[Rfam]
RNA sequence: UUUCCCAUUAAUCUGUUGCUCUUGUCUGUCAGUGAUAAGAGUGGUUAUACACAUGGAAUAAAACAAUAUUGGGCCAUUAUACAUGGAGAUGGAGUGUGUUUUGUCUGUCUAGACACUGUUCUUGGUACCU
Numbered sequence: 001u002u003u004c005c006c007a008u009u010a011a012u013c014u015g016u017u018g019c020u021c022u023u024g025u026c027u028g029u030c031a032g033u034g035a036u037a038a039g040a041g042u043g044g045u046u047a048u049a050c051a052c053a054u055g056g057a058a059u060a061a062a063a064c065a066a067u068a069u070u071g072g073g074c075c076a077u078u079a080u081a082c083a084u085g086g087a088g089a090u091g092g093a094g095u096g097u098g099u100u101u102u103g104u105c106u107g108u109c110u111a112g113a114c115a116c117u118g119u120u121c122u123u124g125g126u127a128c129c130u
Stems, first nucleotide, its partner, number of pairs: 003058001005056004015045007022037001025035002069124001071122003075118002078113001080111002087106008
Rfam assigns this 130-nucleotide RNA sequence from Rattus norvegicus to the family "Small nucleolar RNA SNORA20". Lineage of the source: Eukaryota > Craniata > Rodentia > Myomorpha > Rattus. It scores 83 bits against the family's covariance model. The family's consensus secondary structure was predicted with ILM. Its Rfam clan is "SNORA20 clan". The family's RNA type in Rfam is H/ACA-box small nucleolar RNA. Rfam's curators write: ACA20 is a member of the H/ACA class of snoRNA that guide the sites of modification of uridines to pseudouridines.